[Rfam]
mir-1 microRNA precursor family: a 78-nucleotide RNA sequence from Tetraodon nigroviridis. The source organism's lineage runs through Eukaryota, Opisthokonta, Clupeocephala, Percomorphaceae and Tetraodon. For this family Rfam cites "An extensive class of small RNAs in Caenorhabditis elegans" (Lee and Ambros, Science, 2001).
RNA sequence: CCUUAGUGUACAUACUUCUUUAUGUACCCAUAUGAACAUAUGAUAACUAUGGAAUGUAAAGAAGUAUGUAUUCUUGGU
Numbered sequence: 001c002c003u004u005a006g007u008g009u010a011c012a013u014a015c016u017u018c019u020u021u022a023u024g025u026a027c028c029c030a031u032a033u034g035a036a037c038a039u040a041u042g043a044u045a046a047c048u049a050u051g052g053a054a055u056g057u058a059a060a061g062a063a064g065u066a067u068g069u070a071u072u073c074u075u076g077g078u
Base pairs, nucleotide, nucleotide: 008071009070010069011068012067013066014065015064016063017062018061019060020059021058022057023056024055025054028052029051030050031049032048
Pairs were carried over by alignment from the consensus structure, which was predicted with RNAalifold.